The family of this 120-nucleotide RNA from an Alteromonadaceae bacterium is "Histidine operon leader". Rfam classes the family as a cis-regulatory leader. At least 6 amino acid operons are known to be regulated by attenuation. In each a leader sequence of 150-200 bp is found upstream of the first gene in the operon. This leader sequence can assume two different secondary structures known as the terminator and the anti-terminator structure. In each case the leader also codes for very short peptide sequence that is rich in the end product amino acid of the operon. A search with the family's covariance model found it, with a score of 72 bits. The family's consensus secondary structure is taken from published work. For this family Rfam cites "Attenuation in amino acid biosynthetic operons" (Kolter and Yanofsky, Annu Rev Genet, 1982).

RNA sequence: UCAUCACCACCAUCAUAAAGCAUAACCUUUCAGGUUUGUGCUGGAAGGUUGUUGUUUUCCUUCCAGUGGCGCAGAUACCAAUUAUCGACCCCCGGAAGGAAACUUCCGGGGGUUUUUCGU
Dot-bracket structure: .......(((.(((.....(..........).)))..)))((((((((..........)))))))).................(..((((((((((((....))))))))))))..)...